[Rfam]
Rfam assigns this 113-nucleotide RNA from Alteromonas confluentis to the family "TPP riboswitch aptamer (THI element)". The base pairs follow the family's consensus structure, which is taken from published work. Gene Ontology term of the family: thiamine pyrophosphate binding. Vitamin B(1) in its active form thiamin pyrophosphate (TPP) is an essential coenzyme that is synthesised by coupling of pyrimidine and thiazole moieties in bacteria. The previously detected thiamin-regulatory element, thi box was extended, resulting in a new, highly conserved RNA secondary structure, the THI element, which is widely distributed in eubacteria and also occurs in some archaea. It scores 75 bits against the family's covariance model.

RNA sequence: UAGAACUUGUCGGAGUGCUUCGUUUUCUAACGAAAACAAGCUGAGACCGCAUUGCGGGAUCCGUUGAACCUGAUCAGGCUAAUACCUGCGAAGGGAACAAGCAUGCAAAAUCA
Numbered sequence: 001u002a003g004a005a006c007u008u009g010u011c012g013g014a015g016u017g018c019u020u021c022g023u024u025u026u027c028u029a030a031c032g033a034a035a036a037c038a039a040g041c042u043g044a045g046a047c048c049g050c051a052u053u054g055c056g057g058g059a060u061c062c063g064u065u066g067a068a069c070c071u072g073a074u075c076a077g078g079c080u081a082a083u084a085c086c087u088g089c090g091a092a093g094g095g096a097a098c099a100a101g102c103a104u105g106c107a108a109a110a111u112c113a
Base pairs, nucleotide, nucleotide: 006101007100008099009098010097011063012062013061014060016057017041018040019039020038048056049055050054069094070093071092075088076087077086078085